A member of the RNA family "MIR8024 microRNA precursor family" from Solanum commersonii, 71 nucleotides long.
The family has 2 seed sequences and 661 matches in Rfam 15.1.
[Rfam]
RNA sequence: UUGAAGAAUUUGAAGACUUCCACUUGCAGACUCUUCAACUUGCAGACUUGAAGAAUUUAAAGACUUCAACU
Numbered sequence: 001u002u003g004a005a006g007a008a009u010u011u012g013a014a015g016a017c018u019u020c021c022a023c024u025u026g027c028a029g030a031c032u033c034u035u036c037a038a039c040u041u042g043c044a045g046a047c048u049u050g051a052a053g054a055a056u057u058u059a060a061a062g063a064c065u066u067c068a069a070c071u
Stems, first nucleotide, its partner, number of pairs: 001069006009061006017053004025044004032038001
The source organism's lineage runs through Eukaryota, Tracheophyta, Mesangiospermae, Solaneae and Solanum. Its family is annotated with RISC complex and miRNA-mediated post-transcriptional gene silencing in the Gene Ontology.